[Rfam]
RNA sequence: UCCAGUGGUAGUCAGCUGUCCAGAGCCAUCCAGUGCCUGCGAUAGUGUUACACUGCUGGGAGAUAAAAAUCAGGCAUUUCUCCUGGCUGCUGCUGUCACCGUUCUGGAGACAGCUGAUGCCAGAAAGAAGUGGCACUGGGCUUCCCUGAGAGUGCGCUGAAGAUUUGCUUUCCCUCUUUCGCGCUAGUCUGGAAGCAUACAUG
Dot-bracket structure: (((((((((.((..(((((((((.............))).))))))...)))))))))))............(...(.(((.(((((..(.(.((((.((.....)).)))).).)..)))))..)))...)...).(.((((((........(((..(((((...........)))))..)))......)))))).).....
A member of the RNA family "Small nucleolar RNA SNORA74" from Apaloderma vittatum, 203 nucleotides long. Rfam classes the family as an H/ACA-box small nucleolar RNA. A search with the family's covariance model found it, with a score of 88 bits. Rfam describes the family as follows. U19 belongs to the H/ACA class of snoRNAs. snoRNAs bind a number of proteins (including dyskerin, Gar1p and Nop10p in the case of the H/ACA class) to form snoRNP complexes. A reference for the family is Bortolin and Kiss (1998), "Human U19 intron-encoded snoRNA is processed from a long primary transcript that possesses little potential for protein coding", RNA. Rfam links the family to the GO terms RNA processing and nucleolus. The family has 24 seed sequences and 1,348 matches in Rfam 15.1.